[Rfam]
Nucleotides: 233
Stems, first nucleotide, its partner, number of pairs: 005089003009086010021045004027039003049056002059071004092231002095228001099221006108197011119185001121154004128146007158182003163178004199209003
Number, partner (000 for none) and nucleotide at each position: 001000g002000a003000g004000u005089u006088a007087c008000u009086c010085c011084u012083c013082a014081c015080u016079a017078c018077c019000a020000a021045g022044u023043u024042u025000a026000a027039g028038a029037u030000c031000u032000u033000c034000a035000g036000g037029a038028u039027c040000g041000g042024a043023g044022g045021c046000g047000a048000a049056g050055c051000g052000a053000a054000a055050g056049c057000g058000a059071g060070u061069c062068u063000u064000a065000a066000c067000a068062g069061g070060g071059c072000g073000u074000a075000u076000a077018g078017g079016u080015a081014g082013u083012g084011g085010g086009g087007g088006u089005a090000g091000a092231c093230g094000c095228g096000a097000a098000a099221c100220c101219u102218g103217g104216u105000g106000a107000u108197c109196u110195a111194c112193c113192c114191a115190u116189g117188g118187g119185c120000a121154g122153g123152u124151u125000g126000a127000a128146g129145u130144c131143u132142c133141g134140a135000u136000a137000g138000u139000c140134u141133c142132g143131a144130g145129a146128u147000g148000g149000a150000g151124g152123a153122c154121c155000g156000a157000a158182c159181c160180g161000g162000u163178a164177c165176a166175u167000g168000u169000u170000g171000a172000a173000a174000a175166a176165u177164g178163u179000u180160c181159g182158g183000a184000u185119g186000a187118c188117c189116u190115g191114u192113g193112g194111g195110u196109a197108g198000g199209g200208g201207u202000g203000a204000a205000a206000g207201g208200c209199c210000a211000a212000u213000c214000a215000a216104a217103c218102c219101a220100g221099g222000a223000g224000a225000u226000a227000g228095c229000u230093c231092g232000u233000a

This 233-nucleotide part of an RNA from Lewinella sp. W8 belongs to the Rfam family "Bacterial large subunit ribosomal RNA". Lineage of the source: Bacteria > Saprospiria > Saprospirales > Lewinellaceae > Lewinella. A search with the family's covariance model found it, with a score of 2702 bits. The base pairs follow the family's consensus structure, which is taken from published work.